[Rfam]
RNA sequence: CUUGAGCGAGCUCAGCCACAGCGGCCGGUCCGCCGGCCGCUGCCGGCCGUAGGUGGCCAGCAGCGCUCCCGCCUC
Numbered sequence: 001c002u003u004g005a006g007c008g009a010g011c012u013c014a015g016c017c018a019c020a021g022c023g024g025c026c027g028g029u030c031c032g033c034c035g036g037c038c039g040c041u042g043c044c045g046g047c048c049g050u051a052g053g054u055g056g057c058c059a060g061c062a063g064c065g066c067u068c069c070c071g072c073c074u075c
Base pairs, nucleotide, nucleotide: 015025016024017023031071032070038065039064043060045058047056048055049054

This 75-nucleotide RNA from Streptomyces sp. Rer75 belongs to the Rfam family "ASpks TB sRNA". On this family, see Arnvig and Young, Mol Microbiol 2009: "Identification of small RNAs in Mycobacterium tuberculosis". A search with the family's covariance model found it, with a score of 72 bits. The family's RNA type in Rfam is antisense RNA. The family's consensus secondary structure is taken from published work.